This 50-nucleotide RNA sequence from Novilysobacter defluvii belongs to the Rfam family "Guanidine-II riboswitch aptamer (mini-ykkC)". Rfam links the family to the GO term regulation of gene expression.
Nucleotides: 050
Stems, first nucleotide, its partner, number of pairs: 004017005037050005
Number, partner (000 for none) and nucleotide at each position: 001000c002000c003000a004017g005016g006015a007014g008013g009000a010000c011000g012000a013008c014007c015006u016005c017004c018000c019000c020000c021000g022000c023000g024000a025000c026000g027000g028000g029000a030000a031000g032000c033000a034000c035000g036000a037050c038049c039048g040047g041046g042000a043000c044000g045000g046041c047040c048039c049038g050037g
It scores 34 bits against the family's covariance model. Rfam describes the family as follows. Simpler in structure and has fewer highly conserved nucleotide positions than the ykkC-yxkD leader. Despite this each of its two stem-loop structures directly bind free guanidine. Therefore, mini-ykkC RNA motif represents a distinct class of guanidine-sensing RNAs. Taxonomically the source falls in Novilysobacter defluvii (Bacteria, Gammaproteobacteria, Lysobacteraceae, Novilysobacter).